[Rfam]
RNA sequence: CUCCCCGAAAUGUGUUUAGGCGCAGCGGUUGAGGUUUAAGUCGGGGGGUAAAGCACUGUUUCGGUGCGGGCUGCGAGAGCGGUACCAAAUCGAGACAAACUCUGAAUACCCGAUGUACACUCAGCCAGUGAGACGGUGGGGGAUAAGCUUCAUCGUCGAAAGGGAAACAGCCCAGACCACCAGCUAAGGCCCCCAAAUGGGCACUAAGUGAUUAAGGAGGUGGGAGUGCAAAGACAACCAGGAGGUUUGCCUAGAAGCAGCCAUCCUUGAAAGAGUGCGUAAUAGCUCACUGGUCAAGCGCUCCUGCGCCGAAAAUGAACGGGGCUAAGUGUCCUGCCGAAGCUGUGGGAUAGAAUUUCUAUCGGUAGGGGAGCGUUCUUAAUUGGGCGAAGCAGUAGCGGCAAGCAGCUGUGGACGAUUAAGAAGUGAGAAU
Numbered sequence: 001c002u003c004c005c006c007g008a009a010a011u012g013u014g015u016u017u018a019g020g021c022g023c024a025g026c027g028g029u030u031g032a033g034g035u036u037u038a039a040g041u042c043g044g045g046g047g048g049u050a051a052a053g054c055a056c057u058g059u060u061u062c063g064g065u066g067c068g069g070g071c072u073g074c075g076a077g078a079g080c081g082g083u084a085c086c087a088a089a090u091c092g093a094g095a096c097a098a099a100c101u102c103u104g105a106a107u108a109c110c111c112g113a114u115g116u117a118c119a120c121u122c123a124g125c126c127a128g129u130g131a132g133a134c135g136g137u138g139g140g141g142g143a144u145a146a147g148c149u150u151c152a153u154c155g156u157c158g159a160a161a162g163g164g165a166a167a168c169a170g171c172c173c174a175g176a177c178c179a180c181c182a183g184c185u186a187a188g189g190c191c192c193c194c195a196a197a198u199g200g201g202c203a204c205u206a207a208g209u210g211a212u213u214a215a216g217g218a219g220g221u222g223g224g225a226g227u228g229c230a231a232a233g234a235c236a237a238c239c240a241g242g243a244g245g246u247u248u249g250c251c252u253a254g255a256a257g258c259a260g261c262c263a264u265c266c267u268u269g270a271a272a273g274a275g276u277g278c279g280u281a282a283u284a285g286c287u288c289a290c291u292g293g294u295c296a297a298g299c300g301c302u303c304c305u306g307c308g309c310c311g312a313a314a315a316u317g318a319a320c321g322g323g324g325c326u327a328a329g330u331g332u333c334c335u336g337c338c339g340a341a342g343c344u345g346u347g348g349g350a351u352a353g354a355a356u357u358u359c360u361a362u363c364g365g366u367a368g369g370g371g372a373g374c375g376u377u378c379u380u381a382a383u384u385g386g387g388c389g390a391a392g393c394a395g396u397a398g399c400g401g402c403a404a405g406c407a408g409c410u411g412u413g414g415a416c417g418a419u420u421a422a423g424a425a426g427u428g429a430g431a432a433u
Stems, first nucleotide, its partner, number of pairs: 001373006011024005026128001027126007036119001037117002040114006051103001052101002057097003061093004068086002070083005132157010162173003177348004182344003188338003197335001199334006216310002220307010237294005243267003249261002268272001273288001277286002349363006374428001376425010392412005398406002

The record is a 433-nucleotide part of an RNA from Coleofasciculus chthonoplastes, which matches "Bacterial large subunit ribosomal RNA" in Rfam.